[Rfam]
RNA sequence: UCCCUCACAGUUCUCCGGCCCUCGUUUUUCGCAAGAAAUGUCUAUUGCAGGCCGCCCGUCCCUUUUGGUUACCCAUGCAUAUGCCGCUCUCGGUCCUGUAACAGGACCUCGCGAAGCCGCAGCUGGAUUAUGCUGGAUUGUAGGGCGUUCUGUAUAGAACGUACCAGGUAGGACGGGUGAAUGAGGUUCGGAACUUAACCCUAAGAAGAUAU
Number, nucleotide and partner (000 for none) at each position: 001u000002c000003c000004c000005u000006c000007a000008c000009a195010g194011u193012u000013c000014u000015c191016c190017g189018g188019c000020c000021c000022u000023c000024g000025u000026u000027u000028u000029u000030c000031g000032c000033a000034a000035g000036a000037a000038a000039u000040g000041u000042c000043u000044a000045u000046u000047g000048c000049a000050g000051g000052c000053c000054g000055c000056c000057c000058g000059u000060c000061c000062c000063u000064u000065u000066u000067g000068g000069u000070u000071a000072c000073c000074c000075a000076u000077g000078c000079a000080u000081a000082u000083g000084c000085c000086g000087c000088u000089c000090u000091c000092g000093g000094u000095c000096c000097u000098g000099u000100a000101a000102c000103a000104g000105g000106a000107c000108c000109u000110c000111g000112c000113g000114a000115a000116g000117c000118c000119g000120c000121a000122g000123c000124u000125g000126g000127a000128u000129u000130a000131u000132g000133c000134u000135g000136g000137a000138u000139u000140g000141u000142a000143g000144g000145g000146c000147g000148u000149u000150c000151u000152g000153u000154a000155u000156a000157g000158a000159a000160c000161g000162u000163a000164c000165c000166a000167g000168g000169u000170a000171g000172g000173a000174c000175g000176g000177g000178u000179g000180a000181a000182u000183g000184a000185g000186g000187u000188u018189c017190g016191g015192a000193a011194c010195u009196u000197a000198a000199c000200c000201c000202u000203a000204a000205g000206a000207a000208g000209a000210u000211a000212u000

The family of this 212-nucleotide part of an RNA from Fusarium sarcochroum is "Ascomycota telomerase RNA". The organism belongs to Fusarium lateritium species complex, within Eukaryota. A search with the family's covariance model found it, with a score of 371 bits. Its Rfam clan is "Telomerase clan". The literature on the family includes a 2013 paper in Nucleic Acids Res by Qi et al., "The common ancestral core of vertebrate and fungal telomerase RNAs".